[Rfam]
RNA sequence: AAACAGCCCCCUAUGUAUUGGAUCUUUGGCAGUUUUGGCCCCCCAAUGCCACUUUUGACUUGGUCUUCGCUGACGUGGCACCUGUGCCAAGUCAAAAGUGGCCUUGGGGGGCCAAAACUGCCAAAGAUCCAAUACAUAGGGAGCUGUUU
Dot-bracket structure: ((.((((....((((((((((((((((((((((((((((((((((...........................((.(((((....))))).))............))))))))))))))))))))))))))))))))))....)))).))
Rfam assigns this 149-nucleotide sequence from Medicago truncatula to the family "MIR2619 microRNA precursor family". Pairs were carried over by alignment from the consensus structure, which was predicted with RNAalifold. Taxonomically the source falls in Medicago (Eukaryota, Mesangiospermae, fabids, Fabaceae).